[Rfam]
RNA sequence: CUUGUCGCGAGGCAAGUUCUGAAGGAAGUCUAUGGCAAACCACUGACCUAACGGACAGAAACCGUAUAUGAGGCCGGCGUGUCGGAUGAGAGGGUCGCGAAACUCAAAGUCCAAUAGCUGCACGGAAGGCGGCAGGCAAUGGCAGGGAGCAUGGUGGAAUAGCCAUCAAU
Number, nucleotide and partner (000 for none) at each position: 001c016002u015003u014004g013005u012006c011007g000008c000009g000010a000011g006012g005013c004014a003015a002016g001017u000018u000019c000020u000021g000022a000023a000024g000025g000026a000027a000028g170029u169030c000031u000032a166033u000034g000035g163036c162037a000038a000039a000040c157041c156042a155043c154044u153045g152046a000047c146048c145049u144050a000051a000052c000053g000054g000055a000056c000057a000058g000059a000060a000061a000062c142063c141064g140065u000066a000067u000068a000069u000070g000071a000072g000073g137074c136075c135076g000077g133078c132079g000080u131081g130082u129083c128084g112085g111086a110087u109088g000089a000090g105091a104092g103093g000094g000095u000096c000097g000098c000099g000100a000101a000102a000103c092104u091105c090106a000107a000108a000109g087110u086111c085112c084113a000114a000115u000116a000117g000118c000119u000120g000121c000122a000123c000124g000125g000126a000127a000128g083129g082130c081131g080132g078133c077134a000135g075136g074137c073138a000139a000140u064141g063142g062143c000144a049145g048146g047147g000148a000149g000150c000151a000152u045153g044154g043155u042156g041157g040158a000159a000160u000161a000162g036163c035164c000165a000166u032167c000168a000169a029170u028
RNA: Group II catalytic intron D1-D4-3
Organism: Desulfovibrio sp. An276